mir-399 microRNA precursor family: a 117-nucleotide RNA sequence from Papaver somniferum. Pairs were carried over by alignment from the consensus structure, which was predicted with PFOLD. The literature on the family includes a 2004 paper in Mol Cell by Jones-Rhoades and Bartel, "Computational Identification of Plant MicroRNAs and Their Targets, Including a Stress-Induced miRNA". The source organism's lineage runs through Eukaryota, Embryophyta, Tracheophyta, Magnoliopsida and Papaver. The family has 13 seed sequences and 2,396 matches in Rfam 15.1. About the family: mir-399 was identified in both Arabidopsis thaliana and Oryza sativa computationally and was later experimentally verified. mir-399 is thought to target mRNAs coding for a phosphatase transporter. It scores 57 bits against the family's covariance model.
[Rfam]
RNA sequence: GGGUGAAUGGCGGGGCAAUUCUCCUUUGGCAGAAAGAAACAAGCAAGCAACAAACAACAGUUGCCUUGCCGGGCUCGUCACUUCUCUGCCAGAGGAGAACUGCACUGUCAUUCCUCU
Numbered sequence: 001g002g003g004u005g006a007a008u009g010g011c012g013g014g015g016c017a018a019u020u021c022u023c024c025u026u027u028g029g030c031a032g033a034a035a036g037a038a039a040c041a042a043g044c045a046a047g048c049a050a051c052a053a054a055c056a057a058c059a060g061u062u063g064c065c066u067u068g069c070c071g072g073g074c075u076c077g078u079c080a081c082u083u084c085u086c087u088g089c090c091a092g093a094g095g096a097g098a099a100c101u102g103c104a105c106u107g108u109c110a111u112u113c114c115u116c117u
Stems, first nucleotide, its partner, number of pairs: 005113005011107003015103003019099001021097004027091007035083001